Shown here is a 78-nucleotide sequence from Listeria monocytogenes, a member of the family "Listeria snRNA rli45".

RNA sequence: UUACCAUUUGUGCUAGUUUUUACUUAUAUAGCUAUGCUUUAGCGCGCGACAAUUCAAGUAUGAACGACACAGCAACAA
Numbered sequence: 001u002u003a004c005c006a007u008u009u010g011u012g013c014u015a016g017u018u019u020u021u022a023c024u025u026a027u028a029u030a031g032c033u034a035u036g037c038u039u040u041a042g043c044g045c046g047c048g049a050c051a052a053u054u055c056a057a058g059u060a061u062g063a064a065c066g067a068c069a070c071a072g073c074a075a076c077a078a
Base pairs, nucleotide, nucleotide: 008052009051010050011048012047013046015024016023017022031043032042033041034040